[Rfam]
RNA sequence: CUCGCGGACCGGGCCCCUCUGGUGGCUGCCUUUCCAAGCAGCCGCGAUGUCGGACCGCAUCG
Numbered sequence: 001c002u003c004g005c006g007g008a009c010c011g012g013g014c015c016c017c018u019c020u021g022g023u024g025g026c027u028g029c030c031u032u033u034c035c036a037a038g039c040a041g042c043c044g045c046g047a048u049g050u051c052g053g054a055c056c057g058c059a060u061c062g
Stems, first nucleotide, its partner, number of pairs: 006056002009053004022045008
Dot-bracket structure: .....((.((((.........((((((((........))))))))....)))).))......
RNA: terC RNA